[Rfam]
This 74-nucleotide RNA sequence from Digitaria exilis belongs to the Rfam family "Plastid-rpl20 3UTR RNA". Lineage of the source: Eukaryota > Magnoliopsida > Petrosaviidae > commelinids > Digitaria. From the family's description: Plastid rpl20 is a non-coding RNA (ncRNA) recognised in plastids. It was found in the three prime untranslated region (3UTR) of rpl20 gene, it presence in the 3UTR region sugest a role in transcript maduration. Rfam classes the family as a cis-regulatory element. It scores 71 bits against the family's covariance model.

RNA sequence: ACCGAAUUCCCAGAGAGGGAACUCCAGGAGGCUACAAUAAAUUAAGUGGUAGGAAUCAACGAGCAUGUUGAAAU
Numbered sequence: 001a002c003c004g005a006a007u008u009c010c011c012a013g014a015g016a017g018g019g020a021a022c023u024c025c026a027g028g029a030g031g032c033u034a035c036a037a038u039a040a041a042u043u044a045a046g047u048g049g050u051a052g053g054a055a056u057c058a059a060c061g062a063g064c065a066u067g068u069u070g071a072a073a074u
Stems, first nucleotide, its partner, number of pairs: 007030004013024003057070004